This 130-nucleotide sequence belongs to the Rfam family "Small nucleolar RNA SNORA13". Clan: SNORA13 clan.

[Rfam]
RNA sequence: UGCCUUUGUGUUGCCCAUUCAUUUCCUAUUAGAUGAAUGUGGUGUCAACUAAGGCACACAUUAAACCUUGAAAUAGCCAAAGAGAGGACCGGCCACUCGUUCUCUUGCUUGUGCUGUAACAAGAACAACA
Numbered sequence: 001u002g003c004c005u006u007u008g009u010g011u012u013g014c015c016c017a018u019u020c021a022u023u024u025c026c027u028a029u030u031a032g033a034u035g036a037a038u039g040u041g042g043u044g045u046c047a048a049c050u051a052a053g054g055c056a057c058a059c060a061u062u063a064a065a066c067c068u069u070g071a072a073a074u075a076g077c078c079a080a081a082g083a084g085a086g087g088a089c090c091g092g093c094c095a096c097u098c099g100u101u102c103u104c105u106u107g108c109u110u111g112u113g114c115u116g117u118a119a120c121a122a123g124a125a126c127a128a129c130a
Stems, first nucleotide, its partner, number of pairs: 002055005009047002012044004016039008067123004073117005082112001084110003088105001092100002

Rfam's curators put it in the seed alignment. Rfam's curators write: ACA13 is a member of the H/ACA class of snoRNA that guide the sites of modification of uridines to pseudouridines. It is annotated as an H/ACA-box small nucleolar RNA.